[Rfam]
RNA: msiK RNA
RNA sequence: GGACUAGACCUUCCACUCGGAUCGUCCGGCACGUUCCUGCCGGUAGAAGGGAUUCAUC
Number, nucleotide and partner (000 for none) at each position: 001g000002g000003a000004c000005u000006a000007g000008a000009c050010c049011u048012u047013c046014c000015a044016c000017u000018c000019g000020g000021a000022u000023c000024g000025u000026c043027c042028g041029g040030c039031a038032c000033g000034u000035u000036c000037c000038u031039g030040c029041c028042g027043g026044u015045a000046g013047a012048a011049g010050g009051g000052a000053u000054u000055c000056a000057u000058c000